[Rfam]
RNA sequence: GCAAGCCGGCCGUGCUGACUUGUAGGCGCGGAAGGACGAGAGGUUAGAGGAGACCCUUGCACAAAU
Number, nucleotide and partner (000 for none) at each position: 001g060002c059003a058004a057005g056006c035007c034008g000009g000010c031011c030012g029013u028014g027015c026016u025017g000018a000019c000020u000021u000022g000023u000024a000025g016026g015027c014028g013029c012030g011031g010032a000033a000034g007035g006036a000037c000038g000039a000040g000041a000042g055043g054044u053045u052046a000047g000048a000049g000050g000051a000052g045053a044054c043055c042056c005057u004058u003059g002060c001061a000062c000063a000064a000065a000066u000

Shown here is a 66-nucleotide sequence, a member of the family "Flavivirus DB element". About the family: This family represents the flavivirus 3' UTR elements DB1 and DB2. These DB elements are thought to be required for efficient translation. Rfam classes the family as a cis-regulatory element.